[Rfam]
RNA sequence: GCUGGUACAGUGAUGAGUCUUUGCCGUUUACCCAACUGAUUCAUUCAGUGAUGAAUUUCUAAGCCUGAGAUGCCAGC
Numbered sequence: 001g002c003u004g005g006u007a008c009a010g011u012g013a014u015g016a017g018u019c020u021u022u023g024c025c026g027u028u029u030a031c032c033c034a035a036c037u038g039a040u041u042c043a044u045u046c047a048g049u050g051a052u053g054a055a056u057u058u059c060u061a062a063g064c065c066u067g068a069g070a071u072g073c074c075a076g077c
Stems, first nucleotide, its partner, number of pairs: 001077007

Record summary: The family of this 77-nucleotide RNA from Microcaecilia unicolor is "Small nucleolar RNA SNORD87". The literature on the family includes a 2002 paper in Gene by Gogolevskaya et al., "U87 RNA, a novel C/D box small nucleolar RNA from mammalian cells". The base pairs follow the family's consensus structure. Rfam classes the family as a C/D-box small nucleolar RNA. Gene Ontology terms of the family: RNA processing and nucleolus.